[Rfam]
RNA sequence: GUAUCUGCGGGUGCAGCAACAUCAAGAUUCACACCUCCAAAGGACUUCACAAGUGCACAUGUUCAUACAUAUACAUACUAUGUGUUGGCUAUGGAAGUUCCAAUAAAUAAGUGAGAAUCUUGAUGAUGCUGCACCGGCAAAUAA
Numbered sequence: 001g002u003a004u005c006u007g008c009g010g011g012u013g014c015a016g017c018a019a020c021a022u023c024a025a026g027a028u029u030c031a032c033a034c035c036u037c038c039a040a041a042g043g044a045c046u047u048c049a050c051a052a053g054u055g056c057a058c059a060u061g062u063u064c065a066u067a068c069a070u071a072u073a074c075a076u077a078c079u080a081u082g083u084g085u086u087g088g089c090u091a092u093g094g095a096a097g098u099u100c101c102a103a104u105a106a107a108u109a110a111g112u113g114a115g116a117a118u119c120u121u122g123a124u125g126a127u128g129c130u131g132c133a134c135c136g137g138c139a140a141a142u143a144a
Stems, first nucleotide, its partner, number of pairs: 010135009020125011032113002

Background: mir-172 microRNA precursor family: a 144-nucleotide sequence from Vigna radiata. On this family, see Jones-Rhoades and Bartel, Mol Cell 2004: "Computational Identification of Plant MicroRNAs and Their Targets, Including a Stress-Induced miRNA". It scores 80 bits against the family's covariance model. NCBI's taxonomy places the organism under Eukaryota, Embryophyta, eudicotyledons, fabids, Vigna radiata.